[Rfam]
RNA sequence: GGUCCGAUGCCACGUCGGUGGUAGCUAUACGAUAGCUCUGACCUUCGAUGCUAUGAUUGGACCAAAAUCAAGAGUGAAUUUCAUUCGUUUCGCAUUCUGAUAGGAAUCUGCAAAUCUUAUAUAACGUGAUUCUGCAGAGCCGAUUUGUGCGAUUACAUUU
Numbered sequence: 001g002g003u004c005c006g007a008u009g010c011c012a013c014g015u016c017g018g019u020g021g022u023a024g025c026u027a028u029a030c031g032a033u034a035g036c037u038c039u040g041a042c043c044u045u046c047g048a049u050g051c052u053a054u055g056a057u058u059g060g061a062c063c064a065a066a067a068u069c070a071a072g073a074g075u076g077a078a079u080u081u082c083a084u085u086c087g088u089u090u091c092g093c094a095u096u097c098u099g100a101u102a103g104g105a106a107u108c109u110g111c112a113a114a115u116c117u118u119a120u121a122u123a124a125c126g127u128g129a130u131u132c133u134g135c136a137g138a139g140c141c142g143a144u145u146u147g148u149g150c151g152a153u154u155a156c157a158u159u160u
Stems, first nucleotide, its partner, number of pairs: 002062007009054001013050006020043003024036003090152005103141002108137003113131004
RNA: Small nucleolar RNA snoR2/U65
Organism: Lathyrus oleraceus